[Rfam]
RNA sequence: AUGCAUGUGGAAAUGCCUUCUCAUUCCUUUUGGAGCAGGACUGCAUCCAUAACAUGCUACAUUAAUAAAGGAGUUCUCAGGGCUGCCAACCUUACAGUAGAGGUUGAGUGGUAGUAUAUUUCUCCUACACAA
Numbered sequence: 001a002u003g004c005a006u007g008u009g010g011a012a013a014u015g016c017c018u019u020c021u022c023a024u025u026c027c028u029u030u031u032g033g034a035g036c037a038g039g040a041c042u043g044c045a046u047c048c049a050u051a052a053c054a055u056g057c058u059a060c061a062u063u064a065a066u067a068a069a070g071g072a073g074u075u076c077u078c079a080g081g082g083c084u085g086c087c088a089a090c091c092u093u094a095c096a097g098u099a100g101a102g103g104u105u106g107a108g109u110g111g112u113a114g115u116a117u118a119u120u121u122c123u124c125c126u127a128c129a130c131a132a
Base pairs, nucleotide, nucleotide: 003057004056005055006054007053008052016039017038018037020035021034022033070125071124072123073122082112083111086108087106088105089104090103091102092101093100